[Rfam]
RNA sequence: GCUCCCUGCAGACAAUUUAUUGCAGCCUUCUCAGGGUGGCCCCCUGCUCUGUUCACCAGGGGGAAGGUGUAAUAAAUUGCCUGCGGGGAGG
Numbered sequence: 001g002c003u004c005c006c007u008g009c010a011g012a013c014a015a016u017u018u019a020u021u022g023c024a025g026c027c028u029u030c031u032c033a034g035g036g037u038g039g040c041c042c043c044c045u046g047c048u049c050u051g052u053u054c055a056c057c058a059g060g061g062g063g064a065a066g067g068u069g070u071a072a073u074a075a076a077u078u079g080c081c082u083g084c085g086g087g088g089a090g091g
Stems, first nucleotide, its partner, number of pairs: 002090010013079012026067007035057005
Source information
This 91-nucleotide sequence from Gallus gallus belongs to the Rfam family "mir-1460 microRNA precursor family". The family's consensus secondary structure was predicted with RNAalifold. Rfam's curators put it in the seed alignment. The source organism's lineage runs through Eukaryota, Opisthokonta, Gnathostomata, Tetrapoda and Gallus.